RNA: mir-87 microRNA precursor family
RNA sequence: GUCCAUCCCGCCUGACACUUGACUCAAACCUCAUUUAAAGAAGGUGAGCAAAGUCUCAGGUGUGGCGGCCU
Numbered sequence: 001g002u003c004c005a006u007c008c009c010g011c012c013u014g015a016c017a018c019u020u021g022a023c024u025c026a027a028a029c030c031u032c033a034u035u036u037a038a039a040g041a042a043g044g045u046g047a048g049c050a051a052a053g054u055c056u057c058a059g060g061u062g063u064g065g066c067g068g069c070c071u
Stems, first nucleotide, its partner, number of pairs: 003068002006065002009062007017054004023048004029044003